Shown here is an 85-nucleotide sequence from Flavobacterium caeni, a member of the family "Flavo-1 RNA". The base pairs follow the family's consensus structure, which is taken from published work. The family's RNA type in Rfam is small RNA. The organism belongs to Flavobacterium, within Bacteria. It scores 59 bits against the family's covariance model.
RNA sequence: GUUGCGUUAGGGAUUGCAGCGAAAAUCCUUUUUGUGGCGAAGUUUACGAGCCAAAAAAAGAUUGCAGCGAAAAGCCCGACCCGCA
Number, nucleotide and partner (000 for none) at each position: 001g000002u000003u000004g000005c000006g000007u000008u000009a000010g077011g076012g075013a000014u073015u072016g000017c000018a000019g068020c067021g000022a000023a000024a063025a062026u061027c060028c000029u000030u058031u057032u056033u055034g000035u053036g052037g051038c000039g000040a000041a000042g000043u000044u000045u000046a000047c000048g000049a000050g000051c037052c036053a035054a000055a033056a032057a031058a030059a000060g027061a026062u025063u024064g000065c000066a000067g020068c019069g000070a000071a000072a015073a014074g000075c012076c011077c010078g000079a000080c000081c000082c000083g000084c000085a000